The family of this 154-nucleotide sequence from Paenibacillus baekrokdamisoli is "c-di-AMP riboswitch aptamer (ydaO/yuaA leader)". The base pairs follow the family's consensus structure. The source organism's lineage runs through Bacteria, Bacillati, Bacilli, Paenibacillaceae and Paenibacillus.

[Rfam]
RNA sequence: AUAAAAAAAAUGCCGAAUUCCCGUAAAAAGGAAACGGGGGAACCAUCUUGGGUGAAUUGAUCCCGACGUUCGCUAACACGGACGCCAGAGGUGAUCAUAGGGAGCCUUCAACCGAACCCCACAGCUAACCUCGCAGGCACCGGAAGGAGUUUCC
Numbered sequence: 001a002u003a004a005a006a007a008a009a010a011u012g013c014c015g016a017a018u019u020c021c022c023g024u025a026a027a028a029a030g031g032a033a034a035c036g037g038g039g040g041a042a043c044c045a046u047c048u049u050g051g052g053u054g055a056a057u058u059g060a061u062c063c064c065g066a067c068g069u070u071c072g073c074u075a076a077c078a079c080g081g082a083c084g085c086c087a088g089a090g091g092u093g094a095u096c097a098u099a100g101g102g103a104g105c106c107u108u109c110a111a112c113c114g115a116a117c118c119c120c121a122c123a124g125c126u127a128a129c130c131u132c133g134c135a136g137g138c139a140c141c142g143g144a145a146g147g148a149g150u151u152u153c154c
Stems, first nucleotide, its partner, number of pairs: 011139004018033003035133005050119003058097004100113002